About this RNA:
A member of the RNA family "Nuclear RNase P" from Strongyloides ratti, 309 nucleotides long. From the family's description: Ribonuclease P (RNase P) is a ubiquitous endoribonuclease, found in archaea, bacteria and eukarya as well as chloroplasts and mitochondria. Its best characterised activity is the generation of mature 5'-ends of tRNAs by cleaving the 5'-leader elements of precursor-tRNAs. Cellular RNase Ps are ribonucleoproteins. RNA from bacterial RNase Ps retains its catalytic activity in the absence of the protein subunit, i.e. it is a ribozyme. Isolated eukaryotic and archaeal RNase P RNA has not been shown to retain its catalytic function, but is still essential for the catalytic activity of the holoenzyme. Although the archaeal and eukaryotic holoenzyme s have a much greater protein content than the bacterial ones, the RNA cores from all the three lineages are homologous -- helices corresponding to P1, P2, P3, P4, and P10/11 are common to all cellular RNase P RNAs. Yet, there is considerable sequence variation, particularly among the eukaryotic RNAs. The organism belongs to Strongyloides, within Eukaryota.
RNA sequence: UCUGGCUGAAAGUUGACUUUAGGAAUUACAUACCAGUAUUUAUUGCUGAAAUUAUUCCUGGGAAGGUCUGAGAUAAAGCUCCUGAUUUUAUUUAAAUCAGUAUCCUCUAAGAGGGGAUUUCUCGUAAUGAGAUUGGUUCCGUACCUGAAGAUAUCCUAACAGUUGCAGUAGACAAGAAGUUUCGUUUAGAAAUGGAUUUAUAGCUUCUGUUAGUUUGGAAUCCGGCGCCGAUGCUAGCUAGUUUAAGUUCGAUAGUCAAUGAGAACAAUUAUAUGUUUAAAACUCAAUUCAGACUACUCUUCAACCAGA
Numbered sequence: 001u002c003u004g005g006c007u008g009a010a011a012g013u014u015g016a017c018u019u020u021a022g023g024a025a026u027u028a029c030a031u032a033c034c035a036g037u038a039u040u041u042a043u044u045g046c047u048g049a050a051a052u053u054a055u056u057c058c059u060g061g062g063a064a065g066g067u068c069u070g071a072g073a074u075a076a077a078g079c080u081c082c083u084g085a086u087u088u089u090a091u092u093u094a095a096a097u098c099a100g101u102a103u104c105c106u107c108u109a110a111g112a113g114g115g116g117a118u119u120u121c122u123c124g125u126a127a128u129g130a131g132a133u134u135g136g137u138u139c140c141g142u143a144c145c146u147g148a149a150g151a152u153a154u155c156c157u158a159a160c161a162g163u164u165g166c167a168g169u170a171g172a173c174a175a176g177a178a179g180u181u182u183c184g185u186u187u188a189g190a191a192a193u194g195g196a197u198u199u200a201u202a203g204c205u206u207c208u209g210u211u212a213g214u215u216u217g218g219a220a221u222c223c224g225g226c227g228c229c230g231a232u233g234c235u236a237g238c239u240a241g242u243u244u245a246a247g248u249u250c251g252a253u254a255g256u257c258a259a260u261g262a263g264a265a266c267a268a269u270u271a272u273a274u275g276u277u278u279a280a281a282a283c284u285c286a287a288u289u290c291a292g293a294c295u296a297c298u299c300u301u302c303a304a305c306c307a308g309a
Base pairs, nucleotide, nucleotide: 001309002308003307004306008302009301010300014259018255019254021059022058023057024056025055034048035047036046037045038044068292069291070290071289072288077235078234079233103117104116105115106114107113120132121131122130123129135229136228137227139225140224141223156213157212158211159210160209161208162207263278264277265276266275267274